[Rfam]
This 72-nucleotide RNA from Pseudomonas sp. URIL14HWK12:I9 belongs to the Rfam family "Pseudomonas sRNA P9". Rfam describes the family as follows. This small RNA (sRNA) was computationally identified in the genome of the opportunistic pathogen Pseudomonas aeruginosa and its expression verified by northern blot analysis. By type it is a non-coding RNA gene. The organism belongs to Pseudomonas, within Bacteria.
Nucleotides: 072
Stems, first nucleotide, its partner, number of pairs: 011031007050070008
Number, partner (000 for none) and nucleotide at each position: 001000a002000g003000c004000a005000u006000u007000a008000u009000u010000a011031c012030c013029g014028c015027c016026a017025u018000u019000a020000u021000c022000a023000g024000c025017a026016u027015g028014g029013c030012g031011g032000g033000c034000u035000a036000g037000c038000g039000c040000a041000u042000u043000a044000g045000c046000a047000c048000c049000u050070g051069a052068c053067c054066c055065g056064c057063c058000c059000u060000g061000g062000a063057g064056g065055c066054g067053g068052g069051u070050c071000u072000g